[Rfam]
Purine riboswitch aptamer: a 102-nucleotide RNA sequence from Erysipelothrix sp. HDW6B. A search with the family's covariance model found it, with a score of 66 bits. Rfam 15.1 lists 4,097 matches to the family in 1,411 species.
RNA sequence: AUAAUAACUGUAUUAAUAACCAAUUUAAUGCCCUCAAUAUGGGAGAGCAGUCUCUACUGAUGAACCGUAAAUUCGUCAACAAUUGUGGAAGAAAUGUGUCUU
Numbered sequence: 001a002u003a004a005u006a007a008c009u010g011u012a013u014u015a016a017u018a019a020c021c022a023a024u025u026u027a028a029u030g031c032c033c034u035c036a037a038u039a040u041g042g043g044a045g046a047g048c049a050g051u052c053u054c055u056a057c058u059g060a061u062g063a064a065c066c067g068u069a070a071a072u073u074c075g076u077c078a079a080c081a082a083u084u085g086u087g088g089a090a091g092a093a094a095u096g097u098g099u100c101u102u
Stems, first nucleotide, its partner, number of pairs: 021085005029049003033045003058078007